This 381-nucleotide part of an RNA from Thermoplasmatales archaeon B_DKE belongs to the Rfam family "Archaeal large subunit ribosomal RNA". The family has 91 seed sequences and 2,955 matches in Rfam 15.1. A search with the family's covariance model found it, with a score of 2755 bits.

[Rfam]
RNA sequence: AAAAGUAGCAGACAAGAAUUGUGAGAAUCAAUUCCGCCGAAAGGGCUAAGGGUUCCUUGGCAAUGUUCGUCAGCCGAGGGUUAGCCGAUCCUAAGGUCAUCCUUAACAGGAGAUGACCGAAUGGGAAACUGGUUAAUAUUCCAGUGCCUUGAGUGUUUUGCCGUACAUAUAAACUUCCGGAUAGGGAGACCACGGGAGUCAACGUGGUCGGACAUAUAAGUGGGGGGAGAGUUGUAAUGACGAGAAACCUAUGAAAAUGUUCGAGUGCCCUUCUGGGUAUUCACUCCAUUCCAGGAGUCCGUGAAAGGUGUGUACGGGUCAAACUCAAGUUCGUACCAAGAACCGACACAGGUGCCCCUGGAUGAGAAGUCCAAGGCGUUU
Numbered sequence: 001a002a003a004a005g006u007a008g009c010a011g012a013c014a015a016g017a018a019u020u021g022u023g024a025g026a027a028u029c030a031a032u033u034c035c036g037c038c039g040a041a042a043g044g045g046c047u048a049a050g051g052g053u054u055c056c057u058u059g060g061c062a063a064u065g066u067u068c069g070u071c072a073g074c075c076g077a078g079g080g081u082u083a084g085c086c087g088a089u090c091c092u093a094a095g096g097u098c099a100u101c102c103u104u105a106a107c108a109g110g111a112g113a114u115g116a117c118c119g120a121a122u123g124g125g126a127a128a129c130u131g132g133u134u135a136a137u138a139u140u141c142c143a144g145u146g147c148c149u150u151g152a153g154u155g156u157u158u159u160g161c162c163g164u165a166c167a168u169a170u171a172a173a174c175u176u177c178c179g180g181a182u183a184g185g186g187a188g189a190c191c192a193c194g195g196g197a198g199u200c201a202a203c204g205u206g207g208u209c210g211g212a213c214a215u216a217u218a219a220g221u222g223g224g225g226g227g228a229g230a231g232u233u234g235u236a237a238u239g240a241c242g243a244g245a246a247a248c249c250u251a252u253g254a255a256a257a258u259g260u261u262c263g264a265g266u267g268c269c270c271u272u273c274u275g276g277g278u279a280u281u282c283a284c285u286c287c288a289u290u291c292c293a294g295g296a297g298u299c300c301g302u303g304a305a306a307g308g309u310g311u312g313u314a315c316g317g318g319u320c321a322a323a324c325u326c327a328a329g330u331u332c333g334u335a336c337c338a339a340g341a342a343c344c345g346a347c348a349c350a351g352g353u354g355c356c357c358c359u360g361g362a363u364g365a366g367a368a369g370u371c372c373a374a375g376g377c378g379u380u381u
Base pairs, nucleotide, nucleotide: 016034017033018032019031020030021029035378036377037376038375043357044356045355046354050337051336055079056078057077058076059075060074064072065071086333087332088331090124091123095118096117097116098115099114100113102110103109128145129144130143131142132141148329149328150327151326152325153324154323168310169309170308173298174297175296176295177294179292180291181290184286185285186284188282189208190207191206192205193204194203212260213259214258215257221251222250223249224248231241232240233239270275343352344351359373360372361371362370
Pairs were carried over by alignment from the consensus structure, which is taken from published work.